Notes:
The record is an 86-nucleotide RNA from Polarella glacialis, which matches "Selenocysteine transfer RNA" in Rfam.
RNA sequence: GUCAGGGUGAGUCGGGCUGGUGCUCGGACGAGACUUCAUCUCUCGGGGCAUGGGGACAUGCAGGAGUUCAACUCUCCUUCCUUGAC
Numbered sequence: 001g002u003c004a005g006g007g008u009g010a011g012u013c014g015g016g017c018u019g020g021u022g023c024u025c026g027g028a029c030g031a032g033a034c035u036u037c038a039u040c041u042c043u044c045g046g047g048g049c050a051u052g053g054g055g056a057c058a059u060g061c062a063g064g065a066g067u068u069c070a071a072c073u074c075u076c077c078u079u080c081c082u083u084g085a086c
Base pairs, nucleotide, nucleotide: 001086002085003084004083005082006081007080009078012027013026014025015024016023017022029045030044031043032042033041048061049060050059051058052057063077064076065075066074